Notes: The record is a 75-nucleotide sequence from Myotis davidii, which matches "mir-9229 microRNA precursor family" in Rfam. The source organism's lineage runs through Eukaryota, Chordata, Boreoeutheria, Yangochiroptera and Myotis. The base pairs follow the family's consensus structure, which was predicted with RNAalifold.

RNA sequence: AGACACCUUCAUAAGGCAGGACUUGCUUCAGUGGGGCUUUGGUGUUCACUGAGUCUGCCCCUUGAGUGAGUCUCU
Numbered sequence: 001a002g003a004c005a006c007c008u009u010c011a012u013a014a015g016g017c018a019g020g021a022c023u024u025g026c027u028u029c030a031g032u033g034g035g036g037c038u039u040u041g042g043u044g045u046u047c048a049c050u051g052a053g054u055c056u057g058c059c060c061c062u063u064g065a066g067u068g069a070g071u072c073u074c075u
Stems, first nucleotide, its partner, number of pairs: 001073004006068001008066004015059004020055003028052008036043002